[Rfam]
RNA sequence: CAGUAGAUGCACCCUGAUCAAAUUCCCUUGGCGAAAGCUAGGGGAUUUUUUU
Numbered sequence: 001c002a003g004u005a006g007a008u009g010c011a012c013c014c015u016g017a018u019c020a021a022a023u024u025c026c027c028u029u030g031g032c033g034a035a036a037g038c039u040a041g042g043g044g045a046u047u048u049u050u051u052u
Stems, first nucleotide, its partner, number of pairs: 003012002025044008
Rfam assigns this 52-nucleotide sequence from Limnoraphis robusta to the family "Nitrogen stress-induced RNA 1".
The match comes from Rfam's covariance-model search (48 bits).
Taxonomically the source falls in Limnoraphis robusta (Bacteria, Cyanobacteriota, Cyanophyceae, Limnoraphis).
Rfam 15.1 lists 962 matches to the family in 163 species.
A reference for the family is Ionescu et al. (2010), "Heterocyst-specific transcription of NsiR1, a non-coding RNA encoded in a tandem array of direct repeats in cyanobacteria", J Mol Biol.